[Rfam]
RNA sequence: CUUUGUAGUCUUCCACAGCUUUCUUGAACUGCAUGCAAUAUUCCUCCUUGCAAAUUCUGAGGAAUCUUUUGAGAAGUGAUCAUGCAUAACGAAGUGCAGUUCAAUAAAGCUGUGGGAAAUCACAGAGA
Numbered sequence: 001c002u003u004u005g006u007a008g009u010c011u012u013c014c015a016c017a018g019c020u021u022u023c024u025u026g027a028a029c030u031g032c033a034u035g036c037a038a039u040a041u042u043c044c045u046c047c048u049u050g051c052a053a054a055u056u057c058u059g060a061g062g063a064a065u066c067u068u069u070u071g072a073g074a075a076g077u078g079a080u081c082a083u084g085c086a087u088a089a090c091g092a093a094g095u096g097c098a099g100u101u102c103a104a105u106a107a108a109g110c111u112g113u114g115g116g117a118a119a120u121c122a123c124a125g126a127g128a
Base pairs, nucleotide, nucleotide: 003125004124005123006122013115014114015113017111018110019109020108021107022106024104025103026102027101029099030098031097032096033095
Dot-bracket structure: ..((((......(((.((((((.((((.(((((.............................................................))))).)))).)))))).)))......))))...
The record is a 128-nucleotide RNA sequence from Zingiber officinale, which matches "MIR396 microRNA precursor family" in Rfam. For this family Rfam cites "Expression of Arabidopsis MIRNA genes" (Xie et al., Plant Physiol, 2005). A search with the family's covariance model found it, with a score of 86 bits. NCBI's taxonomy places the organism under Eukaryota, Streptophytina, Mesangiospermae, Petrosaviidae, Zingiber.